About this RNA:
The record is a 130-nucleotide sequence from Gossypium aridum, which matches "Small nucleolar RNA snoR74" in Rfam. The base pairs follow the family's consensus structure, which was predicted with WAR.

RNA sequence: ACAAAAGCAGGGUCUUGUUGCCAUUUUCGAACAAGGCUCUCGUAAACUUCAGGGAGAUUAUUCGCAUUAUUAUUGGGUGAACCUCUGGAUUUUCUCGGUAACUUAAGGUUCAGUAAAUGAUGCAACAUUU
Numbered sequence: 001a002c003a004a005a006a007g008c009a010g011g012g013u014c015u016u017g018u019u020g021c022c023a024u025u026u027u028c029g030a031a032c033a034a035g036g037c038u039c040u041c042g043u044a045a046a047c048u049u050c051a052g053g054g055a056g057a058u059u060a061u062u063c064g065c066a067u068u069a070u071u072a073u074u075g076g077g078u079g080a081a082c083c084u085c086u087g088g089a090u091u092u093u094c095u096c097g098g099u100a101a102c103u104u105a106a107g108g109u110u111c112a113g114u115a116a117a118u119g120a121u122g123c124a125a126c127a128u129u130u
Base pairs, nucleotide, nucleotide: 005049006048007047011038012037014035015034016033017032064123065122066121067120068119069118070117071116078112079111080110081109082108083107084106